[Rfam]
RNA sequence: AUAUGUGAAAGUGUUGAGUAGAAUGUUUACUUUGGAAUGAUGAUAAAUAUUAAAAAAGACAAAAACAUAA
Numbered sequence: 001a002u003a004u005g006u007g008a009a010a011g012u013g014u015u016g017a018g019u020a021g022a023a024u025g026u027u028u029a030c031u032u033u034g035g036a037a038u039g040a041u042g043a044u045a046a047a048u049a050u051u052a053a054a055a056a057a058g059a060c061a062a063a064a065a066c067a068u069a070a
Base pairs, nucleotide, nucleotide: 002069003068004067005066006065011060012059022051023050024049025048026047027046033043035041